RNA: Small nucleolar RNA SNORD116
Organism: Carlito syrichta
RNA sequence: AGAUCAAUGAUGACUUCCAAAUAUAUACUCCUUGGAAACCUGGACAAAAUGAGUGAACAUUCAUCAAACUGAGGUCC
Numbered sequence: 001a002g003a004u005c006a007a008u009g010a011u012g013a014c015u016u017c018c019a020a021a022u023a024u025a026u027a028c029u030c031c032u033u034g035g036a037a038a039c040c041u042g043g044a045c046a047a048a049a050u051g052a053g054u055g056a057a058c059a060u061u062c063a064u065c066a067a068a069c070u071g072a073g074g075u076c077c
Stems, first nucleotide, its partner, number of pairs: 002076004026055005032047003